[Rfam]
RNA: Bacteriophage Diversity-Generating Retroelement RNA
RNA sequence: AACUAUAGUAACGCCACAAGCUACUAUGUUUGAUCUUACGAUCAGCUUCUUAUCUGCUUCGGCAAAUACAAAACUUAGAUUUGAUGUACAGCAGAGUAUUGAAAUAUAAAAACGCAUUGUCAAU
Number, nucleotide and partner (000 for none) at each position: 001a030002a029003c000004u028005a027006u026007a025008g024009u023010a022011a000012c000013g021014c020015c000016a000017c000018a000019a000020g014021c013022u010023a009024c008025u007026a006027u005028g004029u002030u001031u000032g000033a000034u000035c000036u000037u000038a000039c000040g000041a000042u000043c000044a000045g000046c000047u000048u000049c000050u000051u000052a000053u000054c000055u064056g063057c062058u000059u000060c000061g000062g057063c056064a055065a000066a000067u000068a000069c000070a000071a000072a000073a000074c000075u000076u000077a000078g000079a124080u000081u123082u122083g121084a120085u119086g000087u000088a000089c000090a000091g115092c114093a000094g000095a000096g000097u000098a000099u108100u106101g000102a000103a000104a000105u000106a100107u000108a099109a000110a000111a000112a000113c000114g092115c091116a000117u000118u000119g085120u084121c083122a082123a081124u079